[Rfam]
RNA sequence: AGUUGAAAAAGGCAAACUUACUGAAAAGUAAGGACGCAAAGCUACGGGUCUAAGGUUAAAACUAUGAUCGCCGGGUUGCCAAA
Numbered sequence: 001a002g003u004u005g006a007a008a009a010a011g012g013c014a015a016a017c018u019u020a021c022u023g024a025a026a027a028g029u030a031a032g033g034a035c036g037c038a039a040a041g042c043u044a045c046g047g048g049u050c051u052a053a054g055g056u057u058a059a060a061a062c063u064a065u066g067a068u069c070g071c072c073g074g075g076u077u078g079c080c081a082a083a
Stems, first nucleotide, its partner, number of pairs: 012037002017032006040077004045073003048068003055062002
The family of this 83-nucleotide sequence from Anaerobacillus alkalidiazotrophicus is "c-di-GMP-I riboswitch aptamer". Lineage of the source: Bacteria > Bacillota > Bacilli > Caryophanales > Anaerobacillus.